[Rfam]
RNA: Small nucleolar RNA SNORA1
Organism: Chlorocebus sabaeus
RNA sequence: AGCCUCUUUCUAGAUGAAAAUAGGCACUAUCGAUCGUGGUGUCUGAAAAUUGUCAGCGGCUAAAUUGAAACACAGGUUAUGCUUCCAUAACAGUGUAUGUAUUGCAGUGAGGACAAUGAGACCUGUAACAUUU
Numbered sequence: 001a002g003c004c005u006c007u008u009u010c011u012a013g014a015u016g017a018a019a020a021u022a023g024g025c026a027c028u029a030u031c032g033a034u035c036g037u038g039g040u041g042u043c044u045g046a047a048a049a050u051u052g053u054c055a056g057c058g059g060c061u062a063a064a065u066u067g068a069a070a071c072a073c074a075g076g077u078u079a080u081g082c083u084u085c086c087a088u089a090a091c092a093g094u095g096u097a098u099g100u101a102u103u104g105c106a107g108u109g110a111g112g113a114c115a116a117u118g119a120g121a122c123c124u125g126u127a128a129c130a131u132u133u
Base pairs, nucleotide, nucleotide: 002060003059004058006056021045022044023043024042025041026040027039072126073125074124075123076122086112088110090108091107